[Rfam]
RNA sequence: AUACUGUGACAGUUGCAUCGUUCAGCAGAUUGAGUCACGAAGAGAUGUAUACCAUCUGUCUGAUGUAUCU
Number, nucleotide and partner (000 for none) at each position: 001a068002u067003a066004c065005u000006g038007u037008g036009a035010c034011a000012g000013u028014u027015g026016c025017a000018u000019c000020g000021u000022u000023c000024a000025g016026c015027a014028g013029a000030u000031u000032g000033a000034g010035u009036c008037a007038c006039g000040a000041a000042g000043a057044g056045a055046u054047g053048u000049a000050u000051a000052c000053c047054a046055u045056c044057u043058g000059u000060c000061u000062g000063a000064u000065g004066u003067a002068u001069c000070u000

The family of this 70-nucleotide sequence is "Small nucleolar RNA SNORD77". It is one of the family's seed sequences. The family is grouped with related families in Rfam's "SNORD77 clan". A reference for the family is Tycowski et al. (2004), "Guide RNAs with 5' caps and novel box C/D snoRNA-like domains for modification of snRNAs in metazoa", Curr Biol. The family's consensus secondary structure was predicted with RNAalifold. From the family's description: U77 belongs to the C/D family of snoRNAs. It is predicted to guide 2'O-ribose methylation of large 28S rRNA subunit at position A1521. The C/D snoRNAs U44, U47, U74, U75, U76, U78, U79, U80 and U81 share the same host gene as U77 (non-coding). Its family is annotated with nucleolus and RNA processing in the Gene Ontology. Rfam 15.1 lists 396 matches to the family in 167 species.